[Rfam]
RNA sequence: GUCAACGACCCAACACUAAUUCCUAGAAUAUAGUGUAGGCUUGAUAGGGCUAGUCUCUAAUUAAGUCUUAGUUGACCCGUCUAAGUGUUCAUUCACUACGUUAUUUAAGUCACGAUACCUGCAAAUGCUCCAACAGUUUGUUGCUCUAUCGGUAGUCAUUAAACAUCUUAUUUGGCUAUUGGAAGUGUGGCCACCUUAAAAAGCUUAAAUAACAUUGACAAGUUGGACAUUAC
Numbered sequence: 001g002u003c004a005a006c007g008a009c010c011c012a013a014c015a016c017u018a019a020u021u022c023c024u025a026g027a028a029u030a031u032a033g034u035g036u037a038g039g040c041u042u043g044a045u046a047g048g049g050c051u052a053g054u055c056u057c058u059a060a061u062u063a064a065g066u067c068u069u070a071g072u073u074g075a076c077c078c079g080u081c082u083a084a085g086u087g088u089u090c091a092u093u094c095a096c097u098a099c100g101u102u103a104u105u106u107a108a109g110u111c112a113c114g115a116u117a118c119c120u121g122c123a124a125a126u127g128c129u130c131c132a133a134c135a136g137u138u139u140g141u142u143g144c145u146c147u148a149u150c151g152g153u154a155g156u157c158a159u160u161a162a163a164c165a166u167c168u169u170a171u172u173u174g175g176c177u178a179u180u181g182g183a184a185g186u187g188u189g190g191c192c193a194c195c196u197u198a199a200a201a202a203g204c205u206u207a208a209a210u211a212a213c214a215u216u217g218a219c220a221a222g223u224u225g226g227a228c229a230u231u232a233c
Stems, first nucleotide, its partner, number of pairs: 001076006008069001010039002013036006040065006079219003083215001084097004100213011115149002119143001121141006129227006151195003155191005163186002166183003170179002
RNA: HNH endonuclease-associated RNA and ORF (HEARO) RNA